[Rfam]
RNA sequence: GAAUAUACAGAGUGGCCAGAUUAUUAUGCAUUCAGAGAUCAUAAUAAUCUGGCCACUCAGUAUAUAU
Numbered sequence: 001g002a003a004u005a006u007a008c009a010g011a012g013u014g015g016c017c018a019g020a021u022u023a024u025u026a027u028g029c030a031u032u033c034a035g036a037g038a039u040c041a042u043a044a045u046a047a048u049c050u051g052g053c054c055a056c057u058c059a060g061u062a063u064a065u066a067u
Stems, first nucleotide, its partner, number of pairs: 004064005010058008019049010
RNA: mir-9256 microRNA precursor family